[Rfam]
RNA: ncRNA Repressor of NFAT (nuclear factor of activated T cells)
RNA sequence: UCCUGCCUCCCACACCGGCCCUUCACGUGCUGCGUGUGUCCAUAUAAGAAAACCCCUUUUAAUGAGAAGCAAUAUAGUUAUGAACUCUCUAGAGCCAUAAUUAGAGCAAACUAAUUGAAGUUGUGUUUUGACACACUUUCCAAAUUCACGGGUGCUGCAUGACAUAUUCACAACACUGCUGCUGCACAGCCAUGGUGACAGCAGAAUCAUUAGGCUAAUAACGCUUAUUUGCAUUCUUAUCAUGCCAGCAGCACGCCGUUAAAUACUGCUUCGCCAGUGCUCGCUCACUGAGAAAGUUUCCACUGAAAGAUAUUAACAGCAAUUAUGAGUACUUCAGUGGAAUCUCUGAUGUCAAGGA
Numbered sequence: 001u002c003c004u005g006c007c008u009c010c011c012a013c014a015c016c017g018g019c020c021c022u023u024c025a026c027g028u029g030c031u032g033c034g035u036g037u038g039u040c041c042a043u044a045u046a047a048g049a050a051a052a053c054c055c056c057u058u059u060u061a062a063u064g065a066g067a068a069g070c071a072a073u074a075u076a077g078u079u080a081u082g083a084a085c086u087c088u089c090u091a092g093a094g095c096c097a098u099a100a101u102u103a104g105a106g107c108a109a110a111c112u113a114a115u116u117g118a119a120g121u122u123g124u125g126u127u128u129u130g131a132c133a134c135a136c137u138u139u140c141c142a143a144a145u146u147c148a149c150g151g152g153u154g155c156u157g158c159a160u161g162a163c164a165u166a167u168u169c170a171c172a173a174c175a176c177u178g179c180u181g182c183u184g185c186a187c188a189g190c191c192a193u194g195g196u197g198a199c200a201g202c203a204g205a206a207u208c209a210u211u212a213g214g215c216u217a218a219u220a221a222c223g224c225u226u227a228u229u230u231g232c233a234u235u236c237u238u239a240u241c242a243u244g245c246c247a248g249c250a251g252c253a254c255g256c257c258g259u260u261a262a263a264u265a266c267u268g269c270u271u272c273g274c275c276a277g278u279g280c281u282c283g284c285u286c287a288c289u290g291a292g293a294a295a296g297u298u299u300c301c302a303c304u305g306a307a308a309g310a311u312a313u314u315a316a317c318a319g320c321a322a323u324u325a326u327g328a329g330u331a332c333u334u335c336a337g338u339g340g341a342a343u344c345u346c347u348g349a350u351g352u353c354a355a356g357g358a
Base pairs, nucleotide, nucleotide: 033351034350035349039341040340041339042338043337046334047333048332054069057066058065059064074326075325076324077323078322079321081319085094086093087092104282105281106280107279108278117139118138119137120136122135123134124133125132126131151257152256154252155251180197181196182195183194184193201245202244203243214232215231217229218228219227220226